[Rfam]
RNA: mir-1 microRNA precursor family
Organism: Caenorhabditis auriculariae
RNA sequence: AACUGAACGACGUACUUCUUUGCAAACCCAUACGGAUUGUUGUUAUGGAAUGUAAAGAAGUAUGUAGGUCGGUC
Numbered sequence: 001a002a003c004u005g006a007a008c009g010a011c012g013u014a015c016u017u018c019u020u021u022g023c024a025a026a027c028c029c030a031u032a033c034g035g036a037u038u039g040u041u042g043u044u045a046u047g048g049a050a051u052g053u054a055a056a057g058a059a060g061u062a063u064g065u066a067g068g069u070c071g072g073u074c
Stems, first nucleotide, its partner, number of pairs: 008067001010065015028048005